Rfam assigns this 371-nucleotide RNA from Lentibacter algarum to the family "Bacterial RNase P class A". NCBI's taxonomy places the organism under Bacteria, Pseudomonadati, Pseudomonadota, Alphaproteobacteria, Lentibacter. By type it is a ribozyme. It scores 306 bits against the family's covariance model. Gene Ontology terms of the family: dimeric ribonuclease P complex, tRNA processing and ribonuclease P activity.
Nucleotides: 371
Base pairs, nucleotide, nucleotide: 001367002366003365004364005363006362007361008360009359010358011356012318013317014316015315016314017313018312020041021040022039023038024037026035027034028033046354047353048352050351051350052349053348054347055217056216057215058214063252064251066249068213069212070211071210072209073087074086075085076084077083088102089100090099091098092097103208104207108206109205110202111201112200125148126147127144128143129142130141131140132139133138156174157173158172159171160170161169175197176195177194178193179192181190182189183188221274222273223272224271231265232264233263234262235261236260243257244256245255246254247253282301283300284299285298286297287296288295289294
Number, partner (000 for none) and nucleotide at each position: 001367g002366c003365g004364g005363a006362a007361g008360g009359c010358u011356g012318g013317g014316u015315g016314a017313c018312c019000g020041c021040g022039a023038g024037g025000g026035g027034c028033c029000u030000u031000u032000g033028g034027g035026c036000g037024c038023c039022u040021c041020g042000a043000g044000g045000a046354a047353a048352g049000u050351c051350c052349g053348g054347a055217c056216u057215c058214c059000a060000c061000a062000a063252g064251a065000c066249a067000a068213c069212g070211g071210u072209g073087c074086c075085g076084g077083g078000u079000a080000a081000c082000g083077c084076c085075c086074g087073g088102g089100c090099a091098g092097g093000g094000c095000a096000a097092c098091c099090u100089g101000a102088c103208g104207g105000a106000a107000a108206g109205u110202g111201c112200c113000a114000c115000a116000g117000a118000g119000a120000a121000g122000a123000g124000a125148c126147c127144g128143c129142u130141u131140u132139c133138u134000c135000a136000c137000g138133g139132g140131g141130a142129a143128g144127u145000a146000a147126g148125g149000g150000u151000g152000a153000a154000a155000c156174g157173g158172u159171g160170g161169g162000g163000u164000a165000a166000g167000a168000g169161c170160c171159c172158a173157c174156c175197g176195g177194g178193g179192g180000g181190c182189u183188g184000g185000c186000a187000a188183c189182a190181g191000a192179c193178c194177u195176c196000g197175c198000a199000u200112g201111g202110c203000a204000a205109a206108c207104c208103c209072c210071a211070c212069u213068g214058g215057g216056a217055g218000c219000a220000a221274u222273g223272c224271c225000g226000a227000a228000u229000a230000g231265g232264a233263a234262c235261c236260u237000c238000g239000c240000u241000a242000u243257a244256a245255g246254c247253c248000g249066u250000c251064u252063u253247g254246g255245c256244u257243u258000u259000g260236a261235g262234g263233u264232u265231c266000g267000g268000g269000u270000u271224g272223g273222c274221a275000g276000c277000u278000a279000g280000a281000g282301a283300g284299g285298c286297g287296u288295u289294g290000g291000u292000a293000a294289c295288a296287g297286c298285g299284c300283c301282u302000u303000a304000a305000g306000a307000u308000g309000a310000a311000u312018g313017g314016u315015c316014a317013u318012c319000c320000a321000g322000a323000g324000c325000g326000g327000g328000g329000c330000a331000a332000c333000c334000u335000g336000c337000u338000u339000g340000g341000a342000c343000a344000a345000g346000a347054u348053c349052c350051g351050g352048c353047u354046u355000a356011u357000a358010g359009g360008c361007c362006u363005u364004c365003c366002g367001u368000g369000c370000g371000u